[Rfam]
This 274-nucleotide RNA from Orycteropus afer belongs to the Rfam family "Mason-Pfizer monkey virus packaging signal".
RNA sequence: UGGCACCCAACGUGGGGCCUGGAUACGAGGGAAUCAGUGAGAAACACUGCAAAGGACCGGCCGGUGUAUAAAGAGAAAACAGACAGAGCUACGAUCGGCGAAGGAACCUGCUUCACCGAAUCACUCUGGUAAGUUUCAGUGAUCAUGGGGCAAGAAAUAAGUCAGCAUGAAAUAUUUGUGAAACAGUUAAGAGAGGCGCUCAAGACGCGAGGAGUAAAGGUUAAAAUAAAGCAUCUUUUACAAUUUUUUGAUUUUAUAAAAGAGGUUUGCCCGU
Dot-bracket structure: .....(((...(((.........)))..)))...((((.......))))...................................(..(.....(((...((((.......))))...)).)....)...).....(..((..(....).)).).....(.(((...............................)))..).......((((((((..((((...........))))......))))))))........(..(........)..)

Lineage of the source: Eukaryota > Euteleostomi > Amniota > Tubulidentata > Orycteropus afer. A reference for the family is Mustafa et al. (2004), "Mutational analysis of the predicted secondary RNA structure of the Mason-Pfizer monkey virus packaging signal", Virus Res. Rfam describes the family as follows. This family represents a group of sequences that are related to the Mason-Pfizer monkey virus (MPMV) packaging signal. Pairs were carried over by alignment from the consensus structure, which was predicted with PFOLD.